Notes: Rfam assigns this 102-nucleotide sequence from Aeribacillus pallidus to the family "Purine riboswitch aptamer".
RNA sequence: UAUAAUAAAUAUAAACAUUCUCGUAUAAUUUCGGGAAUAUGGCCCGAAAGUUUCUACCAAGCUACCGUAAAUAGCUUGACUACGAGGUGUUGACGGUUCGAU
Numbered sequence: 001u002a003u004a005a006u007a008a009a010u011a012u013a014a015a016c017a018u019u020c021u022c023g024u025a026u027a028a029u030u031u032c033g034g035g036a037a038u039a040u041g042g043c044c045c046g047a048a049a050g051u052u053u054c055u056a057c058c059a060a061g062c063u064a065c066c067g068u069a070a071a072u073a074g075c076u077u078g079a080c081u082a083c084g085a086g087g088u089g090u091u092g093a094c095g096g097u098u099c100g101a102u
Base pairs, nucleotide, nucleotide: 019087020086021085022084023083024082025081029049030048031047032046033045034044035043058078059077060076061075062074063073064072
Lineage of the source: Bacteria > Bacillati > Bacilli > Caryophanales > Aeribacillus. A search with the family's covariance model found it, with a score of 97 bits.